[Rfam]
A member of the RNA family "Plastid-ccsA-ndhD-1 3UTR RNA" from Koelreuteria paniculata, 53 nucleotides long. From the family's description: Plastid-ccsA-ndhD-1 is a non-coding RNA (ncRNA) recognised in plastids. It was found in the three prime untranslated region (3UTR) of ccsA and ndhD genes, its 3UTR location suggests a role in transcript maturation. By type it is a cis-regulatory element. Pairs were carried over by alignment from the consensus structure, which was predicted with LocARNA. Rfam's curators put it in the seed alignment.
RNA sequence: CGAGAACCUUUUGAAUCAAGUAGUGUAGUGAGUGAUUCAAAAGGUUCUCACAA
Numbered sequence: 001c002g003a004g005a006a007c008c009u010u011u012u013g014a015a016u017c018a019a020g021u022a023g024u025g026u027a028g029u030g031a032g033u034g035a036u037u038c039a040a041a042a043g044g045u046u047c048u049c050a051c052a053a
Stems, first nucleotide, its partner, number of pairs: 002049017